A member of the RNA family "Nitrogen stress-induced RNA 1" from Tolypothrix bouteillei, 53 nucleotides long. The pairing is the family consensus, mapped onto this sequence. A reference for the family is Ionescu et al. (2010), "Heterocyst-specific transcription of NsiR1, a non-coding RNA encoded in a tandem array of direct repeats in cyanobacteria", J Mol Biol. The family's RNA type in Rfam is small RNA. The match comes from Rfam's covariance-model search (45 bits).
RNA sequence: UGGUAGAUGCACCCUAAUUGCCGCCCUCAGUCUGUGGCUGAGGGCUUUUUUAU
Dot-bracket structure: .(((......))).........((((((((((...))))))))))........